[Rfam]
RNA sequence: GAGCAAUAGAAUAGGCUUAAAAGGGUCGGUCGGCUACCUCUCGAUAGAAGGGAGGGAUGCCUUGUGACAGUGUUCGAAGCAAUGAUGGUUAUGUUAACCUUUGGUUCGCUAAUCGUAGCGCUGCUGUCCAAUAAACGCAAAUAGACCGCCCUCCUAGCAAAGGUCUGCGGUCUAUUUGCUCGUAUUCCUAUUCGCUGAAGCCCACCGCCCUUAAAAGCGGCUAUUGUGCAAAGAGAGUCGUGUUAGCCGCACGGCUC
Numbered sequence: 001g002a003g004c005a006a007u008a009g010a011a012u013a014g015g016c017u018u019a020a021a022a023g024g025g026u027c028g029g030u031c032g033g034c035u036a037c038c039u040c041u042c043g044a045u046a047g048a049a050g051g052g053a054g055g056g057a058u059g060c061c062u063u064g065u066g067a068c069a070g071u072g073u074u075c076g077a078a079g080c081a082a083u084g085a086u087g088g089u090u091a092u093g094u095u096a097a098c099c100u101u102u103g104g105u106u107c108g109c110u111a112a113u114c115g116u117a118g119c120g121c122u123g124c125u126g127u128c129c130a131a132u133a134a135a136c137g138c139a140a141a142u143a144g145a146c147c148g149c150c151c152u153c154c155u156a157g158c159a160a161a162g163g164u165c166u167g168c169g170g171u172c173u174a175u176u177u178g179c180u181c182g183u184a185u186u187c188c189u190a191u192u193c194g195c196u197g198a199a200g201c202c203c204a205c206c207g208c209c210c211u212u213a214a215a216a217g218c219g220g221c222u223a224u225u226g227u228g229c230a231a232a233g234a235g236a237g238u239c240g241u242g243u244u245a246g247c248c249g250c251a252c253g254g255c256u257c
Base pairs, nucleotide, nucleotide: 001229003227004226005225007223008222009221012204014202015201016200017199018156019155022152023151024150025149029146030145031144037056038055040054041053042052066128067127068126069125070124071123072122079094080093081092104119105118106117166184167183168182169181170180205220206219207218208217235257236256237255238254239253240252241251242250243249

Rfam assigns this 257-nucleotide RNA from Paenibacillus albidus to the family "BsrG". Rfam's curators write: bsrE, bsrG and bsrH pair through intermolecular interactions with antisense sRNAs. They form type I toxin/antitoxin system that includes an mRNA encoding for a short, toxic peptide (bsrE, bsrG and bsrH) and an antitoxin that is comprised of an antisense RNA. bsrG encodes a 39-amino-acid toxin, and the 180 nucleotide antisense sRNA called SR4 acts as the antitoxin (they overlap by 123 nucleotides). SR4 interaction with the 3'UTR of bsrG RNA promotes bsrG degradation and inhibits its translation. BsrG interferes with cell envelope biosynthesis, causes membrane invaginations and delocalisation of the cell wall synthesis and initiates autolysis. bsrE RNA encodes 30 amino-acid toxin peptide. Its antitoxin gene, SR5 overlaps by 112 nucleotides at the 3' end of bsrE. SR5 also overlaps bsrG from nucleotide 163 to 52 (Rfam overlap check). The antitoxin SR5 promotes bsrE degradation but unlike SR4 it does not directly inhibits toxin mRNA translation. The organism belongs to Paenibacillus, within Bacteria. Rfam classes the family as a small RNA. For this family Rfam cites "Novel small RNA-encoding genes in the intergenic regions of Bacillus subtilis" (Saito et al., Gene, 2008).